[Rfam]
RNA: Small nucleolar RNA SNORA70
RNA sequence: CUGCAGCUUAUUAAGCCACCCAGUCUCCCUGCUGUGCGGUUCUGGUGUGCAAUGGCUGCAGACAGUGACUCUGUGGUUGUGUAUGUGGCCAGCUGGGAGGUGCUGGCUGCUUUUAAGGGACCUGUGAGACAAAA
Numbered sequence: 001c002u003g004c005a006g007c008u009u010a011u012u013a014a015g016c017c018a019c020c021c022a023g024u025c026u027c028c029c030u031g032c033u034g035u036g037c038g039g040u041u042c043u044g045g046u047g048u049g050c051a052a053u054g055g056c057u058g059c060a061g062a063c064a065g066u067g068a069c070u071c072u073g074u075g076g077u078u079g080u081g082u083a084u085g086u087g088g089c090c091a092g093c094u095g096g097g098a099g100g101u102g103c104u105g106g107c108u109g110c111u112u113u114u115a116a117g118g119g120a121c122c123u124g125u126g127a128g129a130c131a132a133a134a
Base pairs, nucleotide, nucleotide: 002051003050004049005048020045021044022043026039027038075122076121077120086109087108088107089106090105091104